RNA sequence: UAUGCACACAAACCCAAAGAGCAUUGUUGAACCUGUGCAGUGUUCUUGUCAUGUGUGCGCAAAGUAAAAAAAGCACCUUGUCGCCUUUCGUUAGCUGUCGUGCAAAUGGAAGUGAAAUCAAGGUUCAACACGA
Numbered sequence: 001u002a003u004g005c006a007c008a009c010a011a012a013c014c015c016a017a018a019g020a021g022c023a024u025u026g027u028u029g030a031a032c033c034u035g036u037g038c039a040g041u042g043u044u045c046u047u048g049u050c051a052u053g054u055g056u057g058c059g060c061a062a063a064g065u066a067a068a069a070a071a072a073g074c075a076c077c078u079u080g081u082c083g084c085c086u087u088u089c090g091u092u093a094g095c096u097g098u099c100g101u102g103c104a105a106a107u108g109g110a111a112g113u114g115a116a117a118u119c120a121a122g123g124u125u126c127a128a129c130a131c132g133a
Base pairs, nucleotide, nucleotide: 003059004058005057006056007055008054009053019045020044021043022042023041024040025039026038027037073126075124076123077122078121079120085112086111087110088109089108090107091106092105094103095102